[Rfam]
RNA sequence: UAGUAAGGUCUGAACAUGUGUUUUGAUUUAAGAGGAGGUAUUUUCUAUGACUAAAGUUAUUUUAACUAUUUUUGCAAUUAUCGUUCCUGCGUUUCUCGGAUUUAUACUUGCUUACCAAAUCUAUAAGAAAAAAACAGCCACUUAUAUGCCAUUAAAAAAUGAAUUUGUACAUUGGGCUAAAUAAGCGCACAUUAAGGAGGAAAACAAAUUGAAAAAAACAGAAAGUGAAAAACCACUUGUCAUCAAAAUUGUUAUCAGUGUUCUUGUAGGUUUAUUUCUACUUAAUUUAAUGCCAUUUUUAGCGAUUUUCGGCUAAUUAUUUAUACUUAAAAAGGCUUGAAGGUGCUUAUUUUUUAUGGUAUAUUGUAAAUUGUGUUGAAAUGAAUAGCAAUUUUUUAUGGUGAGACAAUUAAUGACAAAGAUGUCAGUUAAUGCUUUUUUUAUAAAAAGACUCCAGAGUGCCUGUUUAGUGGUAUUCUUGGGUCUUUUUUUGC
Number, nucleotide and partner (000 for none) at each position: 001u000002a000003g444004u443005a442006a441007g440008g439009u000010c000011u000012g000013a000014a000015c000016a000017u000018g000019u000020g407021u406022u405023u404024u403025g000026a000027u000028u000029u144030a143031a142032g141033a000034g139035g138036a000037g000038g135039u134040a000041u131042u130043u129044u128045c127046u126047a060048u059049g058050a057051c056052u000053a000054a000055a000056g051057u050058u049059a048060u047061u000062u000063u000064a000065a000066c000067u000068a000069u000070u000071u000072u000073u000074g111075c110076a109077a108078u000079u106080a105081u000082c000083g000084u000085u100086c099087c098088u000089g096090c000091g000092u000093u000094u000095c000096u089097c000098g087099g086100a085101u000102u000103u000104a000105u080106a079107c000108u077109u076110g075111c074112u000113u000114a000115c000116c000117a000118a000119a000120u000121c000122u000123a000124u000125a000126a046127g045128a044129a043130a042131a041132a000133a000134a039135c038136a000137g000138c035139c034140a000141c032142u031143u030144a029145u000146a000147u000148g402149c401150c400151a399152u000153u398154a397155a396156a395157a394158a393159a392160u391161g000162a000163a000164u000165u000166u000167g000168u000169a000170c000171a000172u000173u000174g000175g000176g000177c269178u268179a267180a000181a000182u000183a000184a262185g261186c260187g259188c258189a000190c000191a000192u000193u000194a000195a000196g000197g000198a000199g000200g000201a000202a000203a000204a000205c000206a000207a000208a000209u000210u000211g000212a000213a000214a000215a000216a000217a000218a000219c000220a000221g241222a240223a238224a237225g236226u235227g234228a000229a000230a000231a000232a000233c000234c227235a226236c225237u224238u223239g000240u222241c221242a000243u000244c000245a000246a000247a000248a000249u000250u000251g000252u000253u000254a000255u000256c000257a000258g188259u187260g186261u185262u184263c000264u000265u000266g000267u179268a178269g177270g386271u385272u384273u383274a382275u381276u380277u379278c378279u000280a376281c375282u000283u373284a372285a371286u370287u369288u368289a367290a362291u361292g360293c359294c358295a357296u356297u000298u000299u316300u315301a314302g313303c312304g000305a000306u000307u000308u000309u000310c000311g000312g303313c302314u301315a300316a299317u000318u000319a000320u000321u000322u000323a000324u000325a000326c000327u000328u000329a000330a000331a000332a000333a000334g344335g000336c342337u000338u000339g000340a000341a000342g336343g000344u334345g000346c000347u000348u000349a000350u000351u000352u000353u000354u000355u000356a296357u295358g294359g293360u292361a291362u290363a000364u000365u000366g000367u289368a288369a287370a286371u285372u284373g283374u000375g281376u280377u000378g278379a277380a276381a275382u274383g273384a272385a271386u270387a000388g000389c000390a000391a160392u159393u158394u157395u156396u155397u154398a153399u151400g150401g149402u148403g024404a023405g022406a021407c020408a000409a433410u432411u431412a430413a429414u427415g426416a425417c424418a423419a000420a000421g000422a000423u418424g417425u416426c415427a414428g000429u413430u412431a411432a410433u409434g000435c000436u000437u000438u000439u008440u007441u006442u005443a004444u003445a490446a489447a488448a487449a486450g485451a484452c483453u482454c481455c000456a479457g478458a477459g476460u000461g000462c473463c472464u000465g000466u000467u000468u000469a000470g000471u000472g463473g462474u000475a000476u459477u458478c457479u456480u000481g454482g453483g452484u451485c450486u449487u448488u447489u446490u445491u000492u000493g000494c000
RNA: Listeria sRNA rli41
Organism: Listeria monocytogenes